[Rfam]
Nucleotides: 063
Base pairs, nucleotide, nucleotide: 001063002062003061004060005059006058007057008056010054011053012052015049016048022038023037024036025035026034027033028032
Number, partner (000 for none) and nucleotide at each position: 001063a002062a003061c004060u005059c006058c007057c008056u009000a010054c011053c012052a013000a014000a015049c016048u017000g018000a019000a020000g021000c022038c023037u024036g025035a026034c027033g028032u029000u030000a031000u032028g033027c034026g035025u036024c037023a038022g039000a040000g041000a042000u043000a044000a045000g046000u047000a048016g049015g050000a051000a052012u053011g054010g055000c056008g057007g058006g059005g060004a061003g062002u063001u